[Rfam]
RNA sequence: GGUUUGUAGGCAGUGUAAUUAGCUGAUUGUGCCGGGGCGCUGACAAUCACUAACUCCACUGCCAUUAAUAU
Numbered sequence: 001g002g003u004u005u006g007u008a009g010g011c012a013g014u015g016u017a018a019u020u021a022g023c024u025g026a027u028u029g030u031g032c033c034g035g036g037g038c039g040c041u042g043a044c045a046a047u048c049a050c051u052a053a054c055u056c057c058a059c060u061g062c063c064a065u066u067a068a069u070a071u
Base pairs, nucleotide, nucleotide: 004068005067006066009063010062012060013059014058015057017055019053020052021051022050024049025048026047027046028045029044030043
The family of this 71-nucleotide RNA from Jaculus jaculus is "mir-34 microRNA precursor family". Lineage of the source: Eukaryota > Eumetazoa > Amniota > Dipodoidea > Jaculus. Rfam's curators write: Human mir-34a was discovered computationally and later experimentally verified. The match comes from Rfam's covariance-model search (60 bits). Its family is annotated with RISC complex and miRNA-mediated post-transcriptional gene silencing in the Gene Ontology.